[Rfam]
RNA: Bacterial large subunit ribosomal RNA, nucleotides 835 to 1336
Organism: Rhodobacter sp. 24-YEA-8
RNA sequence: CUCCGCGAAAGCUAUUUAGGUAGCGCCUCGGACGAAUACCAUCGGGGGUAGAGCACUGGAUGGGCAAUGGGGUCCCACAGACUUACUGAGCCUAACCAAACUCCGAAUACCGAUGAGUAAUAUCCGGGAGACACACGGCGGGUGCUAACGUCCGUCGUGAAGAGGGAAACAACCCUGACCUGCAGCUAAGGCCCCUAAUUCAUGGCUAAGUGGGAAAGCAUGUGAGACGGCCAAAACAACCAGGAGGUUGGCUUAGAAGCAGCCAUCCUUUAAAGAUAGCGUAACAGCUCACUGGUCUAGAUAAGCUGUCUUGCGGCGAAGAUGUAUCGGGGCUCAAGCCAUGAGCCGAAGCUCGGGAUGCACAGCGAUGUGCGUGGUAGCGGAGCGUUCUGUGAUAUAGAACGCUGUCUCUUGUUGAUCCUUAUGGGACCAACGCAGAGACACUGUUCUUUCUGUGAAGCCGGGCUGUAAGGCAUCCGGUGGAGAGAUCAGAAGUGAGAAU
Numbered sequence: 001c002u003c004c005g006c007g008a009a010a011g012c013u014a015u016u017u018a019g020g021u022a023g024c025g026c027c028u029c030g031g032a033c034g035a036a037u038a039c040c041a042u043c044g045g046g047g048g049u050a051g052a053g054c055a056c057u058g059g060a061u062g063g064g065c066a067a068u069g070g071g072g073u074c075c076c077a078c079a080g081a082c083u084u085a086c087u088g089a090g091c092c093u094a095a096c097c098a099a100a101c102u103c104c105g106a107a108u109a110c111c112g113a114u115g116a117g118u119a120a121u122a123u124c125c126g127g128g129a130g131a132c133a134c135a136c137g138g139c140g141g142g143u144g145c146u147a148a149c150g151u152c153c154g155u156c157g158u159g160a161a162g163a164g165g166g167a168a169a170c171a172a173c174c175c176u177g178a179c180c181u182g183c184a185g186c187u188a189a190g191g192c193c194c195c196u197a198a199u200u201c202a203u204g205g206c207u208a209a210g211u212g213g214g215a216a217a218g219c220a221u222g223u224g225a226g227a228c229g230g231c232c233a234a235a236a237c238a239a240c241c242a243g244g245a246g247g248u249u250g251g252c253u254u255a256g257a258a259g260c261a262g263c264c265a266u267c268c269u270u271u272a273a274a275g276a277u278a279g280c281g282u283a284a285c286a287g288c289u290c291a292c293u294g295g296u297c298u299a300g301a302u303a304a305g306c307u308g309u310c311u312u313g314c315g316g317c318g319a320a321g322a323u324g325u326a327u328c329g330g331g332g333c334u335c336a337a338g339c340c341a342u343g344a345g346c347c348g349a350a351g352c353u354c355g356g357g358a359u360g361c362a363c364a365g366c367g368a369u370g371u372g373c374g375u376g377g378u379a380g381c382g383g384a385g386c387g388u389u390c391u392g393u394g395a396u397a398u399a400g401a402a403c404g405c406u407g408u409c410u411c412u413u414g415u416u417g418a419u420c421c422u423u424a425u426g427g428g429a430c431c432a433a434c435g436c437a438g439a440g441a442c443a444c445u446g447u448u449c450u451u452u453c454u455g456u457g458a459a460g461c462c463g464g465g466c467u468g469u470a471a472g473g474c475a476u477c478c479g480g481u482g483g484a485g486a487g488a489u490c491a492g493a494a495g496u497g498a499g500a501a502u
Stems, first nucleotide, its partner, number of pairs: 001385006011024005026130001027128006036121001040115006051104001052102002057098003061094004069086001070084005134159010164175003179357004184353003190347003199344001201343006218317002222314010239296005245269003250264003270274001275290001279288002358375007386497001388494005396486001404481004